[Rfam]
RNA sequence: AGCGGAUUGAUUCGUCUUCGCUUGAUGAAUGGUUGUUAUACACUUAGCACCGAUAACAUCAAAGUUAGCGGAUGGCGAAGC
Numbered sequence: 001a002g003c004g005g006a007u008u009g010a011u012u013c014g015u016c017u018u019c020g021c022u023u024g025a026u027g028a029a030u031g032g033u034u035g036u037u038a039u040a041c042a043c044u045u046a047g048c049a050c051c052g053a054u055a056a057c058a059u060c061a062a063a064g065u066u067a068g069c070g071g072a073u074g075g076c077g078a079a080g081c
Base pairs, nucleotide, nucleotide: 001022002021003020004019005018006017050071051070052069054067055066056065057064